[Rfam]
RNA sequence: UCCACAGCGACAUGGAAUCUGAAGGAAACUAGAGGCAAAAUCCCGAACUGGCGAACAGAAGCCACAUCAGGGUGAAAUAAAGUGGAUGAGUUUACAUAACAAAACAAAGUCCAAUACUACCCGAACCUUAUACAGUAAAUGUGACGGUUACUUGUGAGGAAGGCCGUUGUU
Numbered sequence: 001u002c003c004a005c006a007g008c009g010a011c012a013u014g015g016a017a018u019c020u021g022a023a024g025g026a027a028a029c030u031a032g033a034g035g036c037a038a039a040a041u042c043c044c045g046a047a048c049u050g051g052c053g054a055a056c057a058g059a060a061g062c063c064a065c066a067u068c069a070g071g072g073u074g075a076a077a078u079a080a081a082g083u084g085g086a087u088g089a090g091u092u093u094a095c096a097u098a099a100c101a102a103a104a105c106a107a108a109g110u111c112c113a114a115u116a117c118u119a120c121c122c123g124a125a126c127c128u129u130a131u132a133c134a135g136u137a138a139a140u141g142u143g144a145c146g147g148u149u150a151c152u153u154g155u156g157a158g159g160a161a162g163g164c165c166g167u168u169g170u171u
Base pairs, nucleotide, nucleotide: 001016002015003014004013028171030169031168032167035164036163041157042156044154045153046149047148048147049146050145063143064142065141066140067139072136073135077131078130079129080128082126084112085111086110087109090105091104092103093102
Dot-bracket structure: ((((........))))...........(.(((..((....((.(((((((............(((((....((...((((.(.((((..((((........))))...)))).............).))))...))..))))).)))))...)).)).....))..))).)
Shown here is a 171-nucleotide RNA from Sporanaerobacter sp. PP17-6a, a member of the family "Group II catalytic intron D1-D4-3". Group II introns are found in rRNA, tRNA and mRNA of organelles in fungi, plants and protists, and also in mRNA in bacteria. The pairing is the family consensus, mapped onto this sequence. The match comes from Rfam's covariance-model search (106 bits).